Shown here is a 90-nucleotide RNA sequence from Neisseria shayeganii, a member of the family "Neisseria metabolic switch regulator b (RcoF1/NgncR163)". The base pairs follow the family's consensus structure, which was predicted with RNAfold. About the family: Sibling sRNA described and independently named in three publications. NgncR163 is N. gonorrhoeae while the others are N. meningitidis RNAs. RcoF1 stands for: RNA regulating colonization factor 1. NmsRb_RcoF1_NgncR163 was shown to be the predominant sibling. They are tandemly arranged, structurally nearly identical and and share 70% sequence identity. They translationally down-regulate genes involved in basic metabolic processes including tricarboxylic acid cycle enzymes and amino acid uptake and degradation. The targets include: fumC, sdhC, gltA, sucC, prpB and prpC Their expression is under the control of RelA. Furthermore, they interact with Hfq and target mRNA that encodes putative colonization factor of the human nasopharynx (PrpB). The literature on the family includes a 2017 paper in Microbiology by Bauer et al., "The sibling sRNAs NgncR_162 and NgncR_163 of Neisseria gonorrhoeae participate in the expression control of metabolic, transport and regulatory proteins".
RNA sequence: UCGUUAGGUGGUCAGCAUGAUUACUUGACAGUUUCUCCUCUAUUUCUCCUUUGUAGACUUGGGCGCACAUUGCAAAAUGUGCGCAUUUUU
Numbered sequence: 001u002c003g004u005u006a007g008g009u010g011g012u013c014a015g016c017a018u019g020a021u022u023a024c025u026u027g028a029c030a031g032u033u034u035c036u037c038c039u040c041u042a043u044u045u046c047u048c049c050u051u052u053g054u055a056g057a058c059u060u061g062g063g064c065g066c067a068c069a070u071u072g073c074a075a076a077a078u079g080u081g082c083g084c085a086u087u088u089u090u
Base pairs, nucleotide, nucleotide: 003029004028005027006026007025008024009023010022011021039057040056041055042054043053063084064083065082066081067080068079069078070077
Dot-bracket structure: ..(((((((((.........))))))))).........(((((.........))))).....((((((((......))))))))......